RNA sequence: CCGGGAUAAAGCAACCUCCCGGCCAGGCGUCAGCCCAAGUGUUGC
Number, nucleotide and partner (000 for none) at each position: 001c022002c021003g020004g019005g018006a017007u000008a000009a000010a000011g045012c044013a043014a042015c041016c000017u006018c005019c004020c003021g002022g001023c000024c000025a000026g035027g034028c033029g000030u000031c000032a000033g028034c027035c026036c000037a000038a000039g000040u000041g015042u014043u013044g012045c011
chrB-b RNA: a 45-nucleotide sequence from Novosphingobium nitrogenifigens. The source organism's lineage runs through Bacteria, Pseudomonadati, Sphingomonadales, Novosphingobium and Novosphingobium nitrogenifigens.